[Rfam]
RNA sequence: CCUUGCUCCGGGCGACGUAUGACGAAUGCGGCGGCCGAAGCAUCAGACACACACUGUGCCCGGGGAAGUUCUCGGCACUUCAGGGCGUU
Numbered sequence: 001c002c003u004u005g006c007u008c009c010g011g012g013c014g015a016c017g018u019a020u021g022a023c024g025a026a027u028g029c030g031g032c033g034g035c036c037g038a039a040g041c042a043u044c045a046g047a048c049a050c051a052c053a054c055u056g057u058g059c060c061c062g063g064g065g066a067a068g069u070u071c072u073c074g075g076c077a078c079u080u081c082a083g084g085g086c087g088u089u
Stems, first nucleotide, its partner, number of pairs: 004042004009037003013033002016030005056078005062072002
The record is an 89-nucleotide RNA, which matches "nrdJ RNA" in Rfam. By type it is a small RNA.